[Rfam]
This 66-nucleotide RNA from Massilia sp. Dwa41.01b belongs to the Rfam family "Betaproteobacteria toxic small RNA". The literature on the family includes a 2012 paper in Genome Res by Kimelman et al., "A vast collection of microbial genes that are toxic to bacteria". A search with the family's covariance model found it, with a score of 63 bits. Taxonomically the source falls in Massilia (Bacteria, Pseudomonadati, Pseudomonadota, Oxalobacteraceae). Rfam describes the family as follows. Overexpression in amino aid rich medium attenuates growth, suggesting role in repressing amino acid intake and metabolism.

RNA sequence: UGUCUCCUCCAACUCUCCUCAGAAAAGAAUUGGAUUCAGCCCGCCCGCAACGGCGGGCUUUUUUUU
Number, nucleotide and partner (000 for none) at each position: 001u000002g000003u000004c000005u000006c000007c000008u034009c033010c032011a031012a030013c000014u028015c027016u000017c000018c000019u000020c000021a000022g000023a000024a000025a000026a000027g015028a014029a000030u012031u011032g010033g009034a008035u000036u000037c000038a059039g058040c057041c056042c055043g054044c053045c052046c000047g000048c000049a000050a000051c000052g045053g044054c043055g042056g041057g040058c039059u038060u000061u000062u000063u000064u000065u000066u000